[Rfam]
RNA sequence: AAAACAAUUACAGCGCCUGAGCUAAGGAAAUCGGACGGUCAUGAAUCCUUAGUUGACGAGGUGGAGGUUAUCGAAUUUUCGGCGGAUGCCUCCCGAUCGAGAUGCCCGAUUGUUACUUUCGUUUUAAAACAUAAAAGUGAUUUUAUGGACAGAAGAACGAAAAGGCAAAUAC
Numbered sequence: 001a002a003a004a005c006a007a008u009u010a011c012a013g014c015g016c017c018u019g020a021g022c023u024a025a026g027g028a029a030a031u032c033g034g035a036c037g038g039u040c041a042u043g044a045a046u047c048c049u050u051a052g053u054u055g056a057c058g059a060g061g062u063g064g065a066g067g068u069u070a071u072c073g074a075a076u077u078u079u080c081g082g083c084g085g086a087u088g089c090c091u092c093c094c095g096a097u098c099g100a101g102a103u104g105c106c107c108g109a110u111u112g113u114u115a116c117u118u119u120c121g122u123u124u125u126a127a128a129a130c131a132u133a134a135a136a137g138u139g140a141u142u143u144u145a146u147g148g149a150c151a152g153a154a155g156a157a158c159g160a161a162a163a164g165g166c167a168a169a170u171a172c
Stems, first nucleotide, its partner, number of pairs: 020054008029046001063093005071082004094112006117162007130147007